Iron response element I: a 35-nucleotide sequence from Octodon degus. Rfam links the family to the GO term response to iron ion. The base pairs follow the family's consensus structure, which is taken from published work. By type it is a cis-regulatory element. The literature on the family includes a 1987 paper in Science by Hentze et al., "Identification of the iron-responsive element for the translational regulation of human ferritin mRNA".
RNA sequence: UGGCCUCCUACUUCAACAGUGCUUGAAUGGAGCUU
Numbered sequence: 001u002g003g004c005c006u007c008c009u010a011c012u013u014c015a016a017c018a019g020u021g022c023u024u025g026a027a028u029g030g031a032g033c034u035u
Stems, first nucleotide, its partner, number of pairs: 002034003006031003010028001012027005017021001